[Rfam]
RNA sequence: AUAUACCUUUGUUCAAAAGGCAAAGAAAAACCUCCUAAAUCUAUUAAUCGAACUUGAGACUGUAAAUUCCUCAUCUGUAAUAGCAGGCAGGUGGGGAGUUUUAGGUCCAGUGGC
Numbered sequence: 001a002u003a004u005a006c007c008u009u010u011g012u013u014c015a016a017a018a019g020g021c022a023a024a025g026a027a028a029a030a031c032c033u034c035c036u037a038a039a040u041c042u043a044u045u046a047a048u049c050g051a052a053c054u055u056g057a058g059a060c061u062g063u064a065a066a067u068u069c070c071u072c073a074u075c076u077g078u079a080a081u082a083g084c085a086g087g088c089a090g091g092u093g094g095g096g097a098g099u100u101u102u103a104g105g106u107c108c109a110g111u112g113g114c
Stems, first nucleotide, its partner, number of pairs: 006020003024042003052111003056107002061104001064101007072093007
This 114-nucleotide RNA sequence from Methanosarcina barkeri belongs to the Rfam family "Archaeal Small RNA 41". The family's consensus secondary structure was predicted with RNAfold. The family has 3 seed sequences and 11 matches in Rfam 15.1.